[Rfam]
RNA sequence: UACCUUUGCACCGUCUUACAAAAAGUUUGUAGGCUACAUAAUAAUUAUUUUUAUCAAUAUUGGCAUG
Numbered sequence: 001u002a003c004c005u006u007u008g009c010a011c012c013g014u015c016u017u018a019c020a021a022a023a024a025g026u027u028u029g030u031a032g033g034c035u036a037c038a039u040a041a042u043a044a045u046u047a048u049u050u051u052u053a054u055c056a057a058u059a060u061u062g063g064c065a066u067g
Stems, first nucleotide, its partner, number of pairs: 015033006
Overview:
This 67-nucleotide sequence belongs to the Rfam family "S15-Flavobacteria ribosomal protein leader". The family's RNA type in Rfam is cis-regulatory leader.